[Rfam]
RNA sequence: CUCUUGAGGCAAGCCAGAAGCGGUAUUGGUCAAGGCUAUACCGACAGCGCACCUUCAAAAGGGCGCUUAAUCCCCGGCCAAGCGCCGAAAUAUGAAUAGACACCGCUGGGCUGGUAGGGCUUCCGAACGUCCUGCGGUGUC
Numbered sequence: 001c002u003c004u005u006g007a008g009g010c011a012a013g014c015c016a017g018a019a020g021c022g023g024u025a026u027u028g029g030u031c032a033a034g035g036c037u038a039u040a041c042c043g044a045c046a047g048c049g050c051a052c053c054u055u056c057a058a059a060a061g062g063g064c065g066c067u068u069a070a071u072c073c074c075c076g077g078c079c080a081a082g083c084g085c086c087g088a089a090a091u092a093u094g095a096a097u098a099g100a101c102a103c104c105g106c107u108g109g110g111c112u113g114g115u116a117g118g119g120c121u122u123c124c125g126a127a128c129g130u131c132c133u134g135c136g137g138u139g140u141c
Stems, first nucleotide, its partner, number of pairs: 005057005013050002021043006028037003076086003099141008108132004118124001
Dot-bracket structure: ....(((((...((......((((((.(((....))))))))).....))..)))))..................(((.....)))............((((((((.((((......(.....)....)))).))))))))
RNA: RT-14 RNA